Notes: The record is a 57-nucleotide RNA from Helianthus annuus, which matches "Plastid-ccsA-ndhD-1 3UTR RNA" in Rfam.

RNA sequence: CAACCGCCUAGAACCGUGUAAAUCAAGUGGUAUAGUGAUUCAUGCGGUUCUCGCAAA
Numbered sequence: 001c002a003a004c005c006g007c008c009u010a011g012a013a014c015c016g017u018g019u020a021a022a023u024c025a026a027g028u029g030g031u032a033u034a035g036u037g038a039u040u041c042a043u044g045c046g047g048u049u050c051u052c053g054c055a056a057a
Stems, first nucleotide, its partner, number of pairs: 008053001010051010021040005

Notes: From the family's description: Plastid-ccsA-ndhD-1 is a non-coding RNA (ncRNA) recognised in plastids. The base pairs follow the family's consensus structure, which was predicted with LocARNA. NCBI's taxonomy places the organism under Eukaryota, Viridiplantae, Pentapetalae, Asterales, Helianthus. Rfam 15.1 lists 1,322 matches to the family in 557 species. It scores 56 bits against the family's covariance model. Its Rfam clan is "Plastid-ccsA_ndhD 3UTR RNA clan".